[Rfam]
RNA: Streptomyces-metH RNA
RNA sequence: GGCGUCCGUCCCGUGGACGUGCUGCCCAUCCGGGCCGACUCCCGGUUACGCUGGCGCCGUGCGCCUCUCCCCCGGAUGCCCUGCCGGAUGUCCGGGAAGCCGCAUAGCCGACAGCCGUCGCAUCCGAGGGAGCCCUUUUCAUG
Numbered sequence: 001g002g003c004g005u006c007c008g009u010c011c012c013g014u015g016g017a018c019g020u021g022c023u024g025c026c027c028a029u030c031c032g033g034g035c036c037g038a039c040u041c042c043c044g045g046u047u048a049c050g051c052u053g054g055c056g057c058c059g060u061g062c063g064c065c066u067c068u069c070c071c072c073c074g075g076a077u078g079c080c081c082u083g084c085c086g087g088a089u090g091u092c093c094g095g096g097a098a099g100c101c102g103c104a105u106a107g108c109c110g111a112c113a114g115c116c117g118u119c120g121c122a123u124c125c126g127a128g129g130g131a132g133c134c135c136u137u138u139u140c141a142u143g
Stems, first nucleotide, its partner, number of pairs: 060104004066096003107121002110119003